Rfam assigns this 120-nucleotide sequence from Lactuca sativa to the family "Small nucleolar RNA snoR104". The family's consensus secondary structure was predicted with WAR. The source organism's lineage runs through Eukaryota, Tracheophyta, Magnoliopsida, Cichorieae and Lactuca. Rfam 15.1 lists 612 matches to the family in 228 species.

[Rfam]
RNA sequence: GGGGAGCAUUCAAAGUCAUUUAUGUUGCCUGAUAUACCCUUCCUACAACAAUAUAAUCUCAACUUUCCUUUUUGUUGAACUCAAGCCAUGUUCACAAGCCUCUUAACUAUGAGUUACAUA
Number, nucleotide and partner (000 for none) at each position: 001g030002g029003g028004g000005a026006g025007c024008a023009u022010u000011c000012a000013a000014a000015g000016u000017c000018a000019u000020u000021u000022a009023u008024g007025u006026u005027g000028c003029c002030u001031g000032a000033u000034a000035u000036a000037c000038c000039c000040u000041u000042c000043c000044u000045a000046c000047a000048a000049c000050a000051a000052u000053a000054u000055a000056a000057u000058c113059u112060c111061a000062a000063c000064u000065u000066u000067c000068c000069u000070u000071u098072u097073u096074g095075u094076u000077g093078a000079a091080c090081u088082c000083a000084a000085g000086c000087c000088a081089u000090g080091u079092u000093c077094a075095c074096a073097a072098g071099c000100c000101u000102c000103u000104u000105a000106a000107c000108u000109a000110u000111g060112a059113g058114u000115u000116a000117c000118a000119u000120a000